[Rfam]
RNA sequence: UACUGUUGCUGGCAACCAGCACGGGCGUCGGGGAAACUCUGCGCCCGUGCACGCAUGUUGAGGGCAGGAAAAAAAGA
Number, nucleotide and partner (000 for none) at each position: 001u000002a000003c000004u000005g016006u000007u000008g000009c000010u000011g000012g000013c000014a000015a000016c005017c000018a000019g050020c049021a048022c047023g046024g045025g044026c043027g042028u000029c000030g039031g038032g037033g000034a000035a000036a000037c032038u031039c030040u000041g000042c027043g026044c025045c024046c023047g022048u021049g020050c019051a000052c000053g000054c000055a000056u000057g000058u000059u000060g000061a000062g000063g000064g000065c000066a000067g000068g000069a000070a000071a000072a000073a000074a000075a000076g000077a000
RNA: tpke11